Shown here is a 98-nucleotide RNA from Prunus dulcis, a member of the family "mir-395 microRNA precursor family". On this family, see Jones-Rhoades and Bartel, Mol Cell 2004: "Computational Identification of Plant MicroRNAs and Their Targets, Including a Stress-Induced miRNA". The match comes from Rfam's covariance-model search (78 bits). mir-395 was identified in both Arabidopsis thaliana and Oryza sativa computationally and was later experimentally verified. mir-395 is thought to target mRNAs coding for ATP sulphurylases. Rfam links the family to the GO terms miRNA-mediated post-transcriptional gene silencing and RISC complex. The family has 25 seed sequences and 2,798 matches in Rfam 15.1. Lineage of the source: Eukaryota > Streptophyta > Pentapetalae > Amygdaleae > Prunus.

RNA sequence: GUGUCACUGAGAGUUCCCUUGACCACUUCAUUGGGAAAUAAUUCUUUCUAAUCAAUUAUAUAUCUUACUGAAGUGUUUGGGGGAACUCCUAGUGGCAU
Numbered sequence: 001g002u003g004u005c006a007c008u009g010a011g012a013g014u015u016c017c018c019u020u021g022a023c024c025a026c027u028u029c030a031u032u033g034g035g036a037a038a039u040a041a042u043u044c045u046u047u048c049u050a051a052u053c054a055a056u057u058a059u060a061u062a063u064c065u066u067a068c069u070g071a072a073g074u075g076u077u078u079g080g081g082g083g084a085a086c087u088c089c090u091a092g093u094g095g096c097a098u
Base pairs, nucleotide, nucleotide: 005094006093007092008091009090011088012087013086014085015084016083017082018081019080020079022078024075025074026073027072028071029070030069032067033066034065035064
Dot-bracket structure: ....(((((.((((((((((.(.(((((((.((((............................)))).)))))))..))))))))))).)))))....